RNA sequence: UUCUUAUUAGGAGAGACGGAGGGAAUUGGCCCGACGAAGUCUCAGCAACCUGCUAGCUGGUAAGGUGCUACAUCCAACAGGCGAACCUGAAUGAUGAGAA
Number, nucleotide and partner (000 for none) at each position: 001u100002u099003c098004u097005u096006a095007u094008u093009a000010g000011g000012a000013g043014a042015g041016a040017c039018g000019g000020a000021g032022g031023g030024a000025a000026u077027u076028g075029g074030c023031c022032c021033g000034a000035c000036g000037a000038a000039g017040u016041c015042u014043c013044a069045g068046c067047a066048a000049c065050c064051u062052g061053c060054u059055a000056g000057c000058u000059g054060g053061u052062a051063a000064g050065g049066u047067g046068c045069u044070a000071c000072a000073u000074c029075c028076a027077a026078c089079a088080g087081g086082c000083g000084a000085a000086c081087c080088u079089g078090a000091a000092u000093g008094a007095u006096g005097a004098g003099a002100a001
Overview:
SAM riboswitch aptamer (S box leader): a 100-nucleotide sequence from Sporosarcina pasteurii. The organism belongs to Sporosarcina, within Bacteria.